RNA sequence: UCACCCGUCACGGGAGAACACCGCCGCAGCGUGGUGUGCCGUAGGAGCAACCCCUCCCGGAAUCUCUCAGGCCCACGUACCGUGGCGGUGAG
Numbered sequence: 001u002c003a004c005c006c007g008u009c010a011c012g013g014g015a016g017a018a019c020a021c022c023g024c025c026g027c028a029g030c031g032u033g034g035u036g037u038g039c040c041g042u043a044g045g046a047g048c049a050a051c052c053c054c055u056c057c058c059g060g061a062a063u064c065u066c067u068c069a070g071g072c073c074c075a076c077g078u079a080c081c082g083u084g085g086c087g088g089u090g091a092g
Base pairs, nucleotide, nucleotide: 006087007086008085009084010083011082012081013080019036020035021034022033038072039071040070041068045066046065047064051060052059
This 92-nucleotide RNA from Microbacterium telephonicum belongs to the Rfam family "Glycine riboswitch aptamer". Lineage of the source: Bacteria > Actinomycetota > Actinomycetes > Micrococcales > Microbacterium.